[Rfam]
RNA sequence: UUAAUUGGCUUCUAGGGUUCCGGUUUAAAUUAUUCUGGGUUUCAGGAAAUUUAAGUGUCAGGUCCGAGAGAAGCAACUAACAUUCAUAAGAAUAUUAGUUACACGGCGGGAGAAAAGCCCGGGAGAA
Numbered sequence: 001u002u003a004a005u006u007g008g009c010u011u012c013u014a015g016g017g018u019u020c021c022g023g024u025u026u027a028a029a030u031u032a033u034u035c036u037g038g039g040u041u042u043c044a045g046g047a048a049a050u051u052u053a054a055g056u057g058u059c060a061g062g063u064c065c066g067a068g069a070g071a072a073g074c075a076a077c078u079a080a081c082a083u084u085c086a087u088a089a090g091a092a093u094a095u096u097a098g099u100u101a102c103a104c105g106g107c108g109g110g111a112g113a114a115a116a117g118c119c120c121g122g123g124a125g126a127a
Base pairs, nucleotide, nucleotide: 008074009073010072011071012070015065016064020062021061022059023056024055025054026053027052028051029050030049031048075100076099077098078097079096080095082093083092084091102122104125108120109119110118
Shown here is a 127-nucleotide RNA sequence from Chlorogloea sp. CCALA 695, a member of the family "Guanidine-I riboswitch aptamer".